[Rfam]
RNA sequence: GAGAACAGCAGGGAUUGAACCUACGAAUUUGCCAAUUAUGAGUUGGGCGCUUUAACCAUUCAGCCAUGGAUGC
Numbered sequence: 001g002a003g004a005a006c007a008g009c010a011g012g013g014a015u016u017g018a019a020c021c022u023a024c025g026a027a028u029u030u031g032c033c034a035a036u037u038a039u040g041a042g043u044u045g046g047g048c049g050c051u052u053u054a055a056c057c058a059u060u061c062a063g064c065c066a067u068g069g070a071u072g073c
Stems, first nucleotide, its partner, number of pairs: 003073001005071001006068001008024001010022003038067003042064006049057001